[Rfam]
Nucleotides: 068
Stems, first nucleotide, its partner, number of pairs: 016034005
Number, partner (000 for none) and nucleotide at each position: 001000u002000a003000u004000c005000u006000u007000u008000g009000c010000a011000c012000c013000c014000g015000c016034u017033a018032c019031u020030c021000a022000a023000a024000c025000g026000a027000c028000u029000u030020g031019a032018g033017u034016a035000c036000g037000u038000a039000c040000a041000u042000a043000a044000a045000a046000a047000u048000u049000a050000u051000u052000u053000a054000u055000a056000c057000a058000a059000u060000a061000u062000u063000g064000g065000c066000a067000u068000g
S15-Flavobacteria ribosomal protein leader: a 68-nucleotide RNA sequence. The base pairs follow the family's consensus structure, which is taken from published work. A reference for the family is Eckert and Weinberg (2020), "Discovery of 20 novel ribosomal leader candidates in bacteria and archaea", BMC Microbiol. The sequence is in the family's curated seed alignment. Rfam classes the family as a cis-regulatory leader.